RNA sequence: UUCUUAUCAAGAGCAGGUGGAGGGACGAGCCCGACGAAACCCGGCAACCGAUCUACAAUUGUAGACACGGUGCUAAUUCUCGCAGCAUUACGCUGACAGAUAAGGA
Number, nucleotide and partner (000 for none) at each position: 001u106002u105003c104004u103005u102006a101007u100008c099009a000010a000011g000012a000013g042014c000015a000016g041017g040018u039019g000020g000021a000022g032023g031024g030025a000026c082027g081028a080029g079030c024031c023032c022033g000034a000035c000036g000037a000038a000039a018040c017041c016042c013043g074044g073045c072046a071047a000048c070049c069050g000051a000052u065053c064054u063055a000056c000057a000058a000059u000060u000061g000062u000063a054064g053065a052066c000067a000068c000069g049070g048071u046072g045073c044074u043075a000076a000077u000078u098079c029080u028081c027082g026083c095084a094085g093086c092087a000088u000089u000090a000091c000092g086093c085094u084095g083096a000097c000098a078099g008100a007101u006102a005103a004104g003105g002106a001
The record is a 106-nucleotide RNA from Bacillus cereus, which matches "SAM riboswitch aptamer (S box leader)" in Rfam. Taxonomically the source falls in Bacillus cereus (Bacteria, Bacilli, Caryophanales, Bacillaceae).